This 303-nucleotide RNA sequence from Papaver nudicaule belongs to the Rfam family "Plant signal recognition particle RNA".
Pairs were carried over by alignment from the consensus structure, which is taken from published work.
The match comes from Rfam's covariance-model search (244 bits).
The family is grouped with related families in Rfam's "SRP clan".
The source organism's lineage runs through Eukaryota, Tracheophyta, Spermatophyta, Magnoliopsida and Papaver.
The family's RNA type in Rfam is non-coding RNA gene.
[Rfam]
RNA sequence: GUCGAGCUCGGUAGCGCGAGCUUGUAACUCAAGUGAGGACAUUAAAGUGGUUGAACACUGGCCAUGACCUACUAGGUAGGUUCUGGGGUGCAAUUGUUGGCUCGCCCGUUCCAAGUUUGGAGUUGGCUUGCAUGGUCUGGGCGAAGGCCUAGGUCAUGUGGUCAUUAGAGUGGUAGGCAUUGCGUCAGGCUGGCUUCACAGAGCAGCGAUUACUAUCCUCUCUUGACAGUGGAAGGAUAACGAGCCGAUGCACCUCAGUUCCAACCCAGCCUAGUUAGCUGGCUCAGUUGAACAACCAUUUUU
Numbered sequence: 001g002u003c004g005a006g007c008u009c010g011g012u013a014g015c016g017c018g019a020g021c022u023u024g025u026a027a028c029u030c031a032a033g034u035g036a037g038g039a040c041a042u043u044a045a046a047g048u049g050g051u052u053g054a055a056c057a058c059u060g061g062c063c064a065u066g067a068c069c070u071a072c073u074a075g076g077u078a079g080g081u082u083c084u085g086g087g088g089u090g091c092a093a094u095u096g097u098u099g100g101c102u103c104g105c106c107c108g109u110u111c112c113a114a115g116u117u118u119g120g121a122g123u124u125g126g127c128u129u130g131c132a133u134g135g136u137c138u139g140g141g142c143g144a145a146g147g148c149c150u151a152g153g154u155c156a157u158g159u160g161g162u163c164a165u166u167a168g169a170g171u172g173g174u175a176g177g178c179a180u181u182g183c184g185u186c187a188g189g190c191u192g193g194c195u196u197c198a199c200a201g202a203g204c205a206g207c208g209a210u211u212a213c214u215a216u217c218c219u220c221u222c223u224u225g226a227c228a229g230u231g232g233a234a235g236g237a238u239a240a241c242g243a244g245c246c247g248a249u250g251c252a253c254c255u256c257a258g259u260u261c262c263a264a265c266c267c268a269g270c271c272u273a274g275u276u277a278g279c280u281g282g283c284u285c286a287g288u289u290g291a292a293c294a295a296c297c298a299u300u301u302u303u
Stems, first nucleotide, its partner, number of pairs: 001040003004023007028037003044302010056290002058287003061283004071275007079262002083258004088253003093249001097248008106236002109234005115227003119223004126163001128161015165170001172217005183208003190201003